The family of this 170-nucleotide sequence from Sellimonas intestinalis is "M-box riboswitch aptamer (ykoK leader)". The pairing is the family consensus, mapped onto this sequence. For this family Rfam cites "New RNA motifs suggest an expanded scope for riboswitches in bacterial genetic control" (Barrick et al., Proc Natl Acad Sci U S A, 2004). From the family's description: M-box riboswitch, also know as ykoK leader is described as a metaloregulatory RNA that sense divalent metals and function as a genetic control element of genes related to divalent metal transport in bacteria. It was first reported upstream of the B.subtilis ykoK gene and genes with related functions in other bacteria. Rfam 15.1 lists 1,095 matches to the family in 932 species.
RNA sequence: GGAAGAAAUCGGUAGGUGAGGUUACCACAGGGAUUUGGGCCACCUAAGAUUGCUGCCGCUAAAUUGUGGAGACACAAUGCGCUGGUUAACAGGUCAUGUCGCCGAUAAGGCAUAACCUAACGCAAUUAUUAUGCCCUGUGAUACUAAAGCUUGGACGUAGGAAAGUUUGA
Numbered sequence: 001g002g003a004a005g006a007a008a009u010c011g012g013u014a015g016g017u018g019a020g021g022u023u024a025c026c027a028c029a030g031g032g033a034u035u036u037g038g039g040c041c042a043c044c045u046a047a048g049a050u051u052g053c054u055g056c057c058g059c060u061a062a063a064u065u066g067u068g069g070a071g072a073c074a075c076a077a078u079g080c081g082c083u084g085g086u087u088a089a090c091a092g093g094u095c096a097u098g099u100c101g102c103c104g105a106u107a108a109g110g111c112a113u114a115a116c117c118u119a120a121c122g123c124a125a126u127u128a129u130u131a132u133g134c135c136c137u138g139u140g141a142u143a144c145u146a147a148a149g150c151u152u153g154g155a156c157g158u159a160g161g162a163a164a165g166u167u168u169g170a
Stems, first nucleotide, its partner, number of pairs: 005166001009162002011156001013108001015151003020145003026140007049126005056084001058082002065076004092117003098111003
Dot-bracket structure: ....(...(((.[.(((..(((...(((((((................(((((..(.((.....((((....))))....)).).......(((...(((.......])))...)))....))))).......)))))))..)))...)))....)....))...)....